The record is a 571-nucleotide RNA sequence from Salix purpurea, which matches "Group I catalytic intron" in Rfam.
It scores 101 bits against the family's covariance model.
Rfam 15.1 lists 5,602 matches to the family in 1,395 species.
For this family Rfam cites "Self-splicing of group I introns" (Cech, Annu Rev Biochem, 1990).

Nucleotides: 571
Stems, first nucleotide, its partner, number of pairs: 005024001008022006030038001050187005056181002061097004066092001070088004098167002104161002111154001113152002171550001173549005189536004557568001559566002
Number, partner (000 for none) and nucleotide at each position: 001000c002000u003000a004000c005024g006000g007000a008022c009021u010020u011019a012018a013017u014000u015000g016000a017013a018012u019011u020010g021009a022008g023000c024005c025000u026000u027000a028000g029000u030038a031000u032000g033000g034000a035000a036000a037000c038030u039000u040000a041000c042000u043000a044000a045000g046000u047000g048000a049000u050187a051186a052185c053184u054183u055000u056181c057180a058000a059000a060000u061097u062096c063095a064094g065000a066092g067000a068000a069000a070088c071087c072086c073085c074000g075000g076000a077000a078000a079000a080000a081000a082000a083000a084000a085073g086072g087071g088070g089000c090000a091000a092066u093000c094064c095063u096062g097061a098167g099166c100000c101000a102000a103000a104161u105160c106000c107000u108000a109000u110000u111154u112000u113152u114151u115000c116000g117000a118000a119000a120000a121000a122000c123000a124000a125000a126000c127000a128000a129000a130000g131000g132000u133000u134000c135000a136000u137000a138000a139000a140000g141000a142000c143000a144000g145000a146000a147000u148000a149000a150000g151114a152113a153000u154111a155000c156000a157000a158000a159000a160105g161104g162000a163000u164000a165000g166099g167098u168000g169000c170000a171550g172000a173549g174548a175547c176546u177545c178000a179000a180057u181056g182000g183054a184053a185052g186051u187050u188000g189536u190535u191534c192533u193000a194000a195000c196000a197000a198000a199000u200000a201000g202000a203000g204000u205000u206000g207000a208000c209000u210000g211000c212000g213000u214000u215000g216000c217000a218000u219000u220000a221000g222000u223000c224000a225000a226000g227000u228000a229000c230000a231000a232000g233000u234000a235000a236000g237000g238000g239000a240000a241000u242000c243000c244000u245000u246000c247000u248000g249000c250000u251000a252000a253000a254000g255000u256000u257000a258000a259000a260000a261000u262000u263000c264000c265000a266000g267000a268000a269000a270000a271000a272000a273000a274000g275000a276000a277000a278000g279000g280000u281000a282000a283000a284000g285000u286000a287000a288000a289000g290000u291000a292000u293000a294000a295000c296000c297000c298000u299000a300000u301000a302000u303000a304000c305000a306000u307000a308000a309000u310000a311000c312000a313000u314000a315000g316000g317000c318000a319000u320000a321000c322000g323000u324000a325000c326000u327000g328000a329000a330000a331000u332000a333000c334000u335000a336000u337000c338000u339000c340000a341000a342000a343000u344000g345000a346000u347000u348000a349000a350000u351000g352000a353000c354000a355000a356000c357000c358000g359000a360000c361000c362000c363000a364000a365000a366000u367000c368000u369000g370000u371000a372000u373000u374000u375000u376000u377000u378000u379000c380000u381000a382000u383000g384000u385000u386000a387000u388000a389000u390000g391000a392000a393000a394000a395000a396000u397000g398000a399000a400000a401000u402000a403000a404000u405000u406000a407000a408000u409000a410000a411000u412000u413000c414000a415000a416000a417000u418000a419000u420000c421000a422000a423000a424000u425000a426000a427000u428000a429000a430000u431000a432000a433000a434000a435000a436000a437000a438000a439000c440000a441000u442000u443000g444000c445000u446000u447000u448000g449000a450000u451000u452000u453000g454000a455000a456000u457000c458000g459000a460000u461000u462000c463000c464000a465000a466000g467000u468000u469000g470000a471000c472000g473000a474000a475000a476000g477000g478000a479000u480000c481000g482000a483000a484000u485000a486000u487000u488000c489000a490000u491000u492000g493000a494000u495000c496000a497000g498000a499000u500000c501000a502000u503000u504000c505000a506000c507000c508000c509000c510000a511000g512000a513000a514000u515000c516000u517000g518000c519000u520000g521000a522000u523000u524000a525000a526000u527000u528000g529000g530000a531000c532000g533192a534191g535190a536189g537000u538000a539000a540000a541000g542000a543000u544000a545177g546176a547175g548174u549173c550171c551000c552000a553000u554000u555000c556000u557568a558000c559566a560565u561000g562000u563000c564000a565560a566559u567000a568557u569000c570000g571000a